Shown here is a 75-nucleotide RNA sequence from Mikania micrantha, a member of the family "Plastid-ycf2 5UTR RNA". The literature on the family includes a 2023 paper in Plant Commun by Richter et al., "Retrograde signaling in plants: A critical review focusing on the GUN pathway and beyond". The family's consensus secondary structure was predicted with LocARNA. NCBI's taxonomy places the organism under Eukaryota, Mesangiospermae, Pentapetalae, campanulids, Mikania. From the family's description: Plastid ycf2 is a non-coding RNA (ncRNA) recognised in plastids. It was found in the prime untranslated region (5UTR) of ycf2 genes, it presents a tRNA-like motif which suggests it can be involved in mRNA maturation, particularly involved in defining the precise 5' end of the transcript.

RNA sequence: AUGCAUCCAGUAGGAAUUGAACCUACUAAUUCCCCAAUUAUGCGUUGGAUGCUUUAACCAUUUAGCCUUGGAUGC
Numbered sequence: 001a002u003g004c005a006u007c008c009a010g011u012a013g014g015a016a017u018u019g020a021a022c023c024u025a026c027u028a029a030u031u032c033c034c035c036a037a038u039u040a041u042g043c044g045u046u047g048g049a050u051g052c053u054u055u056a057a058c059c060a061u062u063u064a065g066c067c068u069u070g071g072a073u074g075c
Stems, first nucleotide, its partner, number of pairs: 003075006010026005040069001042067001044066008